[Rfam]
RNA sequence: UGCUGUGUUUUAUGGCUUUCUAUUCCUAUGUGAUUUUCUCUAGCAUGUCACAUAGGGUCUAAAGCCAUUGGGUACAGAG
Numbered sequence: 001u002g003c004u005g006u007g008u009u010u011u012a013u014g015g016c017u018u019u020c021u022a023u024u025c026c027u028a029u030g031u032g033a034u035u036u037u038c039u040c041u042a043g044c045a046u047g048u049c050a051c052a053u054a055g056g057g058u059c060u061a062a063a064g065c066c067a068u069u070g071g072g073u074a075c076a077g078a079g
Base pairs, nucleotide, nucleotide: 001079003077004076005075006074007073008072009071010070012068013067014066015065016064017063018062019061024057025056026055027054028053029052030051031050032049033048
Rfam assigns this 79-nucleotide sequence from Takifugu rubripes to the family "mir-135 microRNA precursor family". For this family Rfam cites "Identification of tissue-specific microRNAs from mouse" (Lagos-Quintana et al., Curr Biol, 2002). The family has 88 seed sequences and 2,125 matches in Rfam 15.1.